Rfam assigns this 98-nucleotide sequence from Nitratifractor salsuginis to the family "Bacterial small signal recognition particle RNA".
Its family is annotated with signal recognition particle, plasma membrane targeting and SRP-dependent cotranslational protein targeting to membrane, signal sequence recognition in the Gene Ontology.
The signal recognition particle (SRP) is a universally conserved ribonucleoprotein involved in the co-translational targeting of proteins to membranes.
A search with the family's covariance model found it, with a score of 65 bits.
RNA sequence: UUUCCAGACCUGUGCAACGGUUUCGGAGGACACCGGGUCAGGAUGGGAACAUAGCAGCCCACCCUCCGUCACCGUGUGCCGCAGCCAUCUGGGGAGAG
Numbered sequence: 001u002u003u004c005c006a007g008a009c010c011u012g013u014g015c016a017a018c019g020g021u022u023u024c025g026g027a028g029g030a031c032a033c034c035g036g037g038u039c040a041g042g043a044u045g046g047g048a049a050c051a052u053a054g055c056a057g058c059c060c061a062c063c064c065u066c067c068g069u070c071a072c073c074g075u076g077u078g079c080c081g082c083a084g085c086c087a088u089c090u091g092g093g094g095a096g097a098g
Stems, first nucleotide, its partner, number of pairs: 004092005010084005015076001017075005024068006035060004043052003